[Rfam]
RNA: ASpks TB sRNA
Organism: Virgisporangium ochraceum
RNA sequence: CUUCAGCGAGCCGAGCCGCACCGGACGGUCCCACGGCCGGUCCUGGCCGUAGGUGGCGAGCACCGCCUGUGCCUC
Numbered sequence: 001c002u003u004c005a006g007c008g009a010g011c012c013g014a015g016c017c018g019c020a021c022c023g024g025a026c027g028g029u030c031c032c033a034c035g036g037c038c039g040g041u042c043c044u045g046g047c048c049g050u051a052g053g054u055g056g057c058g059a060g061c062a063c064c065g066c067c068u069g070u071g072c073c074u075c
Stems, first nucleotide, its partner, number of pairs: 016024002032071003038065002043060002047056003